About this RNA: DUF805b RNA: a 35-nucleotide sequence. The family's consensus secondary structure is taken from published work. By type it is a cis-regulatory element.

[Rfam]
RNA sequence: UCGGAGAAUGCCGAAAAGCCGGAUAAGAGUAGGCA
Numbered sequence: 001u002c003g004g005a006g007a008a009u010g011c012c013g014a015a016a017a018g019c020c021g022g023a024u025a026a027g028a029g030u031a032g033g034c035a
Stems, first nucleotide, its partner, number of pairs: 002021003010034003